[Rfam]
RNA: Tryptophan operon leader
Organism: Rouxiella badensis
RNA sequence: AACAGCUGGUGGCGCGCCUCCCCAACGCGGGCGGUGUAAUCGCGCAUAGCUGUCAUCAGACGCUGCAGAUACCCGAAGCCCGCUCAUUGCGGGUUUUUUUGU
Numbered sequence: 001a002a003c004a005g006c007u008g009g010u011g012g013c014g015c016g017c018c019u020c021c022c023c024a025a026c027g028c029g030g031g032c033g034g035u036g037u038a039a040u041c042g043c044g045c046a047u048a049g050c051u052g053u054c055a056u057c058a059g060a061c062g063c064u065g066c067a068g069a070u071a072c073c074c075g076a077a078g079c080c081c082g083c084u085c086a087u088u089g090c091g092g093g094u095u096u097u098u099u100u101g102u
Base pairs, nucleotide, nucleotide: 009043010042011041012040014037015036016035017034018033020031021030022029077095078094079093080092081091082090083089